Small nucleolar RNA snoR104: a 119-nucleotide sequence from Eucalyptus grandis. The base pairs follow the family's consensus structure, which was predicted with WAR. By type it is an H/ACA-box small nucleolar RNA. The match comes from Rfam's covariance-model search (91 bits). NCBI's taxonomy places the organism under Eukaryota, Mesangiospermae, Gunneridae, rosids, Eucalyptus. Rfam 15.1 lists 612 matches to the family in 228 species.
[Rfam]
RNA sequence: GGGAAACAUCUGUAUGUGGAGAUGUUACCUGAUACAGUCUUCCUAUAACAAAAGUUCUGCAGUUUCCUGCUUGCAUAAUUUAAGGAAGUUGUGCAAGUCUCAAAGUUGCUGAGACAUGA
Numbered sequence: 001g002g003g004a005a006a007c008a009u010c011u012g013u014a015u016g017u018g019g020a021g022a023u024g025u026u027a028c029c030u031g032a033u034a035c036a037g038u039c040u041u042c043c044u045a046u047a048a049c050a051a052a053a054g055u056u057c058u059g060c061a062g063u064u065u066c067c068u069g070c071u072u073g074c075a076u077a078a079u080u081u082a083a084g085g086a087a088g089u090u091g092u093g094c095a096a097g098u099c100u101c102a103a104a105g106u107u108g109c110u111g112a113g114a115c116a117u118g119a
Stems, first nucleotide, its partner, number of pairs: 001030003005026007056112002069098008078089003
Dot-bracket structure: (((.(((((((........))))))).))).........................((...........((((((((.(((......))).))))))))............)).......